[Rfam]
RNA sequence: CUGGCACCGGUUCACCCGUCGGCGGCAAUGGCUGGCGGGACCCGGCGGCC
Numbered sequence: 001c002u003g004g005c006a007c008c009g010g011u012u013c014a015c016c017c018g019u020c021g022g023c024g025g026c027a028a029u030g031g032c033u034g035g036c037g038g039g040a041c042c043c044g045g046c047g048g049c050c
Stems, first nucleotide, its partner, number of pairs: 003050003007045004015039009

Rfam assigns this 50-nucleotide RNA sequence from Saccharopolyspora rectivirgula to the family "L31-Actinobacteria ribosomal protein leader". By type it is a cis-regulatory leader. The base pairs follow the family's consensus structure, which is taken from published work. The source organism's lineage runs through Bacteria, Actinomycetota, Actinomycetes, Saccharopolyspora and Saccharopolyspora rectivirgula. Rfam's curators put it in the seed alignment.